Shown here is a 148-nucleotide RNA from Gopherus evgoodei, a member of the family "Small nucleolar RNA SNORA79".
Taxonomically the source falls in Gopherus (Eukaryota, Eumetazoa, Deuterostomia, Testudinoidea).
The family's consensus secondary structure was predicted with RNAalifold.
By type it is an H/ACA-box small nucleolar RNA.
From the family's description: ACA65 (SNORA79) is a member of the H/ACA class of snoRNAs that guide the sites of modification of uridines to pseudouridines.
The family has 25 seed sequences and 944 matches in Rfam 15.1.
It scores 81 bits against the family's covariance model.
RNA sequence: CGAUAACGGUUCCUCUUGCUGCCAUGGACCAUGGGCAGUGGGAUUUUGUGUCAUAGCAGAUUACACUUGGCCUUCCUUCACUCAUGGUGCUCUUGGAUGGGUUUGGCUGUCCGUUAGCACCUUCUGAAUUUUACGGGGUCAGAUACUC
Numbered sequence: 001c002g003a004u005a006a007c008g009g010u011u012c013c014u015c016u017u018g019c020u021g022c023c024a025u026g027g028a029c030c031a032u033g034g035g036c037a038g039u040g041g042g043a044u045u046u047u048g049u050g051u052c053a054u055a056g057c058a059g060a061u062u063a064c065a066c067u068u069g070g071c072c073u074u075c076c077u078u079c080a081c082u083c084a085u086g087g088u089g090c091u092c093u094u095g096g097a098u099g100g101g102u103u104u105g106g107c108u109g110u111c112c113g114u115u116a117g118c119a120c121c122u123u124c125u126g127a128a129u130u131u132u133a134c135g136g137g138g139u140c141a142g143a144u145a146c147u148c
Stems, first nucleotide, its partner, number of pairs: 001056001003054002006051003014043005020037004069140006082127003086123001087120005095112005